Molybdenum/Tungsten riboswitch aptamer (Moco RNA motif): a 188-nucleotide RNA sequence from Clostridium perfringens. Taxonomically the source falls in Clostridium perfringens CPE (Bacteria, Clostridia, Clostridium, Clostridium perfringens). The family has 160 seed sequences and 1,248 matches in Rfam 15.1.
RNA sequence: AUUAGUAUAAAUCUCCAAGCUUAAAGAUCUAAGGAGAAGGUUCUAUGAUUUUUAAGCCUGGAUUACUAAAUUAUUUAACAUUAAGUUUAAUAAGAGCUUAAAUUGUUAAUUUGGGGGUAAUCCACAGGGUAAGGUUUGAAAGAAUUUUGCCUCCACGUAUUUUGGGAAGGAGAAUAAGCAAAAGUAAA
Numbered sequence: 001a002u003u004a005g006u007a008u009a010a011a012u013c014u015c016c017a018a019g020c021u022u023a024a025a026g027a028u029c030u031a032a033g034g035a036g037a038a039g040g041u042u043c044u045a046u047g048a049u050u051u052u053u054a055a056g057c058c059u060g061g062a063u064u065a066c067u068a069a070a071u072u073a074u075u076u077a078a079c080a081u082u083a084a085g086u087u088u089a090a091u092a093a094g095a096g097c098u099u100a101a102a103u104u105g106u107u108a109a110u111u112u113g114g115g116g117g118u119a120a121u122c123c124a125c126a127g128g129g130u131a132a133g134g135u136u137u138g139a140a141a142g143a144a145u146u147u148u149g150c151c152u153c154c155a156c157g158u159a160u161u162u163u164g165g166g167a168a169g170g171a172g173a174a175u176a177a178g179c180a181a182a183a184g185u186a187a188a
Stems, first nucleotide, its partner, number of pairs: 003182001012173005019057011033044004059124009127152011153165002